[Rfam]
The record is a 74-nucleotide sequence from Myotis lucifugus, which matches "mir-9193 microRNA precursor family" in Rfam.
The source organism's lineage runs through Eukaryota, Gnathostomata, Boreoeutheria, Vespertilionidae and Myotis.
Pairs were carried over by alignment from the consensus structure, which was predicted with RNAalifold.
Nucleotides: 074
Base pairs, nucleotide, nucleotide: 006069008067012063013062015060016059017058018057019056020055021054022053023052024051025050028047030045031044032043033042034041
Number, partner (000 for none) and nucleotide at each position: 001000c002000a003000c004000a005000a006069a007000a008067u009000u010000c011000c012063g013062g014000u015060g016059u017058c018057c019056c020055u021054c022053a023052g024051c025050c026000c027000a028047g029000a030045u031044u032043g033042u034041g035000a036000g037000a038000g039000g040000g041034u042033g043032c044031a045030g046000g047028c048000c049000a050025g051024g052023c053022u054021g055020a056019g057018g058017g059016a060015u061000c062013c063012c064000a065000c066000c067008a068000g069006u070000g071000c072000a073000c074000g